Source information: The family of this 247-nucleotide RNA from Slackia isoflavoniconvertens is "raiA RNA".
RNA sequence: UUCUUUCGGGUCUGUAGUUGCGGGGGCAAAAAGGCUCCUUAGUCCAUGGCAGAUGCGGUCAAAAGGAUCCACGUAAGUACGCGCCGCCCUAAUAUAGGCGCGUGCGAGCAUGGCGUAUCCUAGAAGUAAGUCGCACCUCCCGGCCGAUUUUUGCGGCAACGCCGCACUGGGGGAGAGGGCAGAGCGAAAUCAUUCGCAAAACCCCAGUGCGCGAGUGUGGGGGCAAAGACUAGGUCAGCCGAAAGAA
Numbered sequence: 001u002u003c004u005u006u007c008g009g010g011u012c013u014g015u016a017g018u019u020g021c022g023g024g025g026g027c028a029a030a031a032a033g034g035c036u037c038c039u040u041a042g043u044c045c046a047u048g049g050c051a052g053a054u055g056c057g058g059u060c061a062a063a064a065g066g067a068u069c070c071a072c073g074u075a076a077g078u079a080c081g082c083g084c085c086g087c088c089c090u091a092a093u094a095u096a097g098g099c100g101c102g103u104g105c106g107a108g109c110a111u112g113g114c115g116u117a118u119c120c121u122a123g124a125a126g127u128a129a130g131u132c133g134c135a136c137c138u139c140c141c142g143g144c145c146g147a148u149u150u151u152u153g154c155g156g157c158a159a160c161g162c163c164g165c166a167c168u169g170g171g172g173g174a175g176a177g178g179g180c181a182g183a184g185c186g187a188a189a190u191c192a193u194u195c196g197c198a199a200a201a202c203c204c205c206a207g208u209g210c211g212c213g214a215g216u217g218u219g220g221g222g223g224c225a226a227a228g229a230c231u232a233g234g235u236c237a238g239c240c241g242a243a244a245g246a247a
Stems, first nucleotide, its partner, number of pairs: 001247009012238003015232005046218003049059001052119006068113002077105009111225001132211005137173007177204003184197005
The family's RNA type in Rfam is riboswitch. Taxonomically the source falls in Slackia (Bacteria, Bacillati, Eggerthellales, Eggerthellaceae).